Shown here is a 94-nucleotide sequence from Tepidibacillus fermentans, a member of the family "Group II catalytic intron D1-D4-1". Lineage of the source: Bacteria > Bacillati > Bacilli > Caryophanales > Tepidibacillus. The base pairs follow the family's consensus structure.

Nucleotides: 094
Stems, first nucleotide, its partner, number of pairs: 001025002005022007038045001047094003056087002068079001
Number, partner (000 for none) and nucleotide at each position: 001025u002024a003000a004000c005022c006021u007020a008019u009018a010017c011016u012000g013000c014000a015000a016011g017010g018009u019008a020007u021006a022005g023000c024002u025001g026000a027000a028000c029000a030000u031000c032000c033000a034000g035000a036000a037000g038045u039000c040000a041000g042000u043000u044000c045038a046000a047094g048093u049092c050000a051000u052000a053000g054000u055000a056087c057086c058000a059000u060000u061000g062000g063000a064000a065000c066000c067000u068079u069000u070000u071000c072000g073000a074000a075000a076000g077000a078000u079068a080000a081000g082000u083000c084000g085000a086057g087056g088000g089000a090000a091000g092049g093048a094047c